[Rfam]
RNA sequence: UUAUAGAAUGUUUUAGCUAUUGAACUGUUUUAUUCCUCUCUGUCAAUGAACAAUUUGUUCAUAGACAGAGAGGGUCAAAACAGUUCAAUAACUAAAACGUCCUAUAAC
Dot-bracket structure: ((((((....((((((.((((((((((((((.((..............((((...))))....)).)))..........))))))))))).))))))....)))))).
Numbered sequence: 001u002u003a004u005a006g007a008a009u010g011u012u013u014u015a016g017c018u019a020u021u022g023a024a025c026u027g028u029u030u031u032a033u034u035c036c037u038c039u040c041u042g043u044c045a046a047u048g049a050a051c052a053a054u055u056u057g058u059u060c061a062u063a064g065a066c067a068g069a070g071a072g073g074g075u076c077a078a079a080a081c082a083g084u085u086c087a088a089u090a091a092c093u094a095a096a097a098c099g100u101c102c103u104a105u106a107a108c
Stems, first nucleotide, its partner, number of pairs: 001107006011097006018090011029069003033065002049059004
Shown here is a 108-nucleotide RNA sequence from Plutella xylostella, a member of the family "mir-8517 microRNA precursor family". A search with the family's covariance model found it, with a score of 96 bits. The base pairs follow the family's consensus structure, which was predicted with RNAalifold. Its family is annotated with miRNA-mediated post-transcriptional gene silencing and RISC complex in the Gene Ontology. The organism belongs to Plutella, within Eukaryota.